[Rfam]
RNA sequence: UGCCGACACCCUGUACUCGGAUCGUCCGGCACGUUCCUGCCGGUGAAGGGAAGUAUCU
Numbered sequence: 001u002g003c004c005g006a007c008a009c010c011c012u013g014u015a016c017u018c019g020g021a022u023c024g025u026c027c028g029g030c031a032c033g034u035u036c037c038u039g040c041c042g043g044u045g046a047a048g049g050g051a052a053g054u055a056u057c058u
Stems, first nucleotide, its partner, number of pairs: 009050004014045002026043006
Rfam assigns this 58-nucleotide sequence from Nocardia farcinica to the family "msiK RNA". It is annotated as a cis-regulatory element. Taxonomically the source falls in Nocardia farcinica (Bacteria, Actinomycetes, Nocardiaceae, Nocardia).